[Rfam]
RNA sequence: AUCGAACUUCAGGGCAGGGUGAAAGUCCCUACCGGCGGUAAAGCCCGCGAGCCGCAAGGCAUGAUUCGGUGAGAUUCCGAAGCCGACAGUACAGUCUGGAUGGAAGAAGCGAGUU
Numbered sequence: 001a002u003c004g005a006a007c008u009u010c011a012g013g014g015c016a017g018g019g020u021g022a023a024a025g026u027c028c029c030u031a032c033c034g035g036c037g038g039u040a041a042a043g044c045c046c047g048c049g050a051g052c053c054g055c056a057a058g059g060c061a062u063g064a065u066u067c068g069g070u071g072a073g074a075u076u077c078c079g080a081a082g083c084c085g086a087c088a089g090u091a092c093a094g095u096c097u098g099g100a101u102g103g104a105a106g107a108a109g110c111g112a113g114u115u
Stems, first nucleotide, its partner, number of pairs: 003113001007109004017029003031095002033085002035048004043083002053059001065081005087098003
This 115-nucleotide RNA from Pyramidobacter sp. CG50-2 belongs to the Rfam family "FMN riboswitch aptamer (RFN element)". The organism belongs to Pyramidobacter, within Bacteria. Pairs were carried over by alignment from the consensus structure, which is taken from published work. Rfam's curators write: The RFN element is a highly conserved domain that is found frequently in the 5'-untranslated regions of prokaryotic mRNAs that encode for flavin mononucleotide (FMN) biosynthesis and transport proteins. It scores 109 bits against the family's covariance model.